[Rfam]
RNA sequence: GUGAUGAUAGCAAGGGUUGAAAGCCAUCUGUGGCUUUGCCCGUGUCUGCAUGAAGGAAAUACCUCUGUAGACCUGCUGAAACGUCAC
Dot-bracket structure: (((((..((((..(((....(.((((....)))).)..)))...(((((..(.(((.....)))).)))))...))))....)))))
Numbered sequence: 001g002u003g004a005u006g007a008u009a010g011c012a013a014g015g016g017u018u019g020a021a022a023g024c025c026a027u028c029u030g031u032g033g034c035u036u037u038g039c040c041c042g043u044g045u046c047u048g049c050a051u052g053a054a055g056g057a058a059a060u061a062c063c064u065c066u067g068u069a070g071a072c073c074u075g076c077u078g079a080a081a082c083g084u085c086a087c
Stems, first nucleotide, its partner, number of pairs: 001087005008078004014041003021036001023034004045071005052065001054064003

Shown here is an 87-nucleotide RNA sequence, a member of the family "L4-Archaeoglobi ribosomal protein leades". A reference for the family is Eckert and Weinberg (2020), "Discovery of 20 novel ribosomal leader candidates in bacteria and archaea", BMC Microbiol. Rfam classes the family as a cis-regulatory leader.